Lysine riboswitch aptamer: a 178-nucleotide RNA sequence from Clostridium sp. 'deep sea'. Rfam links the family to the GO term lysine biosynthetic process. The match comes from Rfam's covariance-model search (118 bits).
RNA sequence: AUCCCGUCUAGAGGAGCAAAAGUCAUUAGUAUUAUUACUUAGAAAGGCAUCGUUGAGGUAAUAAAAAAGGGUCUUUUGCCGAAGUAAAAAAGCUGCCAAAGUUUGUUUACUGGGGUUAAGUUUAAGAGACUUAACACUGUCGUAAUUAUUUUUUUAGUUACGGAGCGCUAUUGAGGGG
Numbered sequence: 001a002u003c004c005c006g007u008c009u010a011g012a013g014g015a016g017c018a019a020a021a022g023u024c025a026u027u028a029g030u031a032u033u034a035u036u037a038c039u040u041a042g043a044a045a046g047g048c049a050u051c052g053u054u055g056a057g058g059u060a061a062u063a064a065a066a067a068a069g070g071g072u073c074u075u076u077u078g079c080c081g082a083a084g085u086a087a088a089a090a091a092g093c094u095g096c097c098a099a100a101g102u103u104u105g106u107u108u109a110c111u112g113g114g115g116u117u118a119a120g121u122u123u124a125a126g127a128g129a130c131u132u133a134a135c136a137c138u139g140u141c142g143u144a145a146u147u148a149u150u151u152u153u154u155u156a157g158u159u160a161c162g163g164a165g166c167g168c169u170a171u172u173g174a175g176g177g178g
Base pairs, nucleotide, nucleotide: 009170010169011168016079017078018077019076020075021074022073024071032064033063034062035061036060037059038058039057083111084110085109086108087107088106090104091103092102093101094100112138113137115135116134117133118132119131120130121129122128140163141162142161143160144159145158146157